[Rfam]
RNA: c-di-AMP riboswitch aptamer (ydaO/yuaA leader)
Organism: Nocardioides pocheonensis
RNA sequence: GAGGGUCGCGCCGAGUCUGGAGUCGUGCGUCGCGGGGAGGCACGAAACCGGAGCCGGGGAACCACGUUCCUUGGGGUGAAUCCGGCGCGUUGAGGUCACCGAUCUGACCGAGACGUGCUGGUAGGGCGAUCUUUGCGCCCGAAUCCGUCAGCUCACCUGGUAGGCGUCAGACAAAGAGGAG
Dot-bracket structure: ........((((...(((((...........................)))))((((((....((.......))(((.....((((((((((....................))))))))))..((((.........))))...))).........)))))).))))...............